Eukaryotic large subunit ribosomal RNA: a 280-nucleotide part of an RNA from Sterkiella histriomuscorum.
It is one of the family's seed sequences.
For this family Rfam cites "Crystal structure of the ribosome at 5.5 A resolution" (Yusupov et al., Science, 2001).
Rfam links the family to the GO terms structural constituent of ribosome and ribosome.
Clan: LSU clan.
[Rfam]
RNA sequence: GAGUCUAACAUGUAUGCGAGUGUGCUAGUGGAAAAACUAACACGCGUAAUGAAGGUGAUUGAUGCCAAGCGCAAGCAGCAGCAUCGACCGACCAUGAUCCUCUGGUGAAAGGUUUGAGUACGAGCAUAAAUGUUAGGACCCGAAAGAUGGUGAACUAUGCCUGAGUAGGGUGAAGCCAGGGGAAACUCUGGUGGAGGCUCGUAGCGGUUCUGACGUGCAAAUCGAUCGUCGAACUUGGGUAUAGGGGCGAAAGACUAAUCGAACCAUCUAGUAGCUGGUU
Numbered sequence: 001g002a003g004u005c006u007a008a009c010a011u012g013u014a015u016g017c018g019a020g021u022g023u024g025c026u027a028g029u030g031g032a033a034a035a036a037c038u039a040a041c042a043c044g045c046g047u048a049a050u051g052a053a054g055g056u057g058a059u060u061g062a063u064g065c066c067a068a069g070c071g072c073a074a075g076c077a078g079c080a081g082c083a084u085c086g087a088c089c090g091a092c093c094a095u096g097a098u099c100c101u102c103u104g105g106u107g108a109a110a111g112g113u114u115u116g117a118g119u120a121c122g123a124g125c126a127u128a129a130a131u132g133u134u135a136g137g138a139c140c141c142g143a144a145a146g147a148u149g150g151u152g153a154a155c156u157a158u159g160c161c162u163g164a165g166u167a168g169g170g171u172g173a174a175g176c177c178a179g180g181g182g183a184a185a186c187u188c189u190g191g192u193g194g195a196g197g198c199u200c201g202u203a204g205c206g207g208u209u210c211u212g213a214c215g216u217g218c219a220a221a222u223c224g225a226u227c228g229u230c231g232a233a234c235u236u237g238g239g240u241a242u243a244g245g246g247g248c249g250a251a252a253g254a255c256u257a258a259u260c261g262a263a264c265c266a267u268c269u270a271g272u273a274g275c276u277g278g279u280u
Base pairs, nucleotide, nucleotide: 005136006135007134008133009132010131011130013128014127015126016125017124020045021044022043026039027038028037029036049056050055061085062084063083064082065081069076070075087119088118089116090115091114092112093111099105139278140277142275146268147267148266149265150264151263155244156243157242158241159240160239161238162237163236164235165234166232168200169199170198171197175192176191177190178189179188180187181186204229205228206227207226209225210224212223213222246256247255